The family of this 165-nucleotide RNA from Kingdonia uniflora is "U1 spliceosomal RNA". Its Rfam clan is "U1 clan". The family's consensus secondary structure is taken from published work. The source organism's lineage runs through Eukaryota, Streptophyta, Embryophyta, Spermatophyta and Kingdonia.

[Rfam]
RNA sequence: AUACUUACCUGGACGGGGUCUAUGGGCGAUCAAUAAGGUCUAUGGCCUAGGUUGGUGAUUUCCAUUGCACUUUGGAAGGGUGCUUGCCUAACAUCUCCCCAAGUGGGAGAGUGCACGUCAUAAUUUGUUACCCUAAAAACCAAUUUUAUUUGUAUGCGCAUUUUC
Numbered sequence: 001a002u003a004c005u006u007a008c009c010u011g012g013a014c015g016g017g018g019u020c021u022a023u024g025g026g027c028g029a030u031c032a033a034u035a036a037g038g039u040c041u042a043u044g045g046c047c048u049a050g051g052u053u054g055g056u057g058a059u060u061u062c063c064a065u066u067g068c069a070c071u072u073u074g075g076a077a078g079g080g081u082g083c084u085u086g087c088c089u090a091a092c093a094u095c096u097c098c099c100c101a102a103g104u105g106g107g108a109g110a111g112u113g114c115a116c117g118u119c120a121u122a123a124u125u126u127g128u129u130a131c132c133c134u135a136a137a138a139a140c141c142a143a144u145u146u147u148a149u150u151u152g153u154a155u156g157c158g159c160a161u162u163u164u165c
Stems, first nucleotide, its partner, number of pairs: 012119004016048005023042005049089003053086001055083003059079003062075002092113002094110003098106002136164004145156001147154002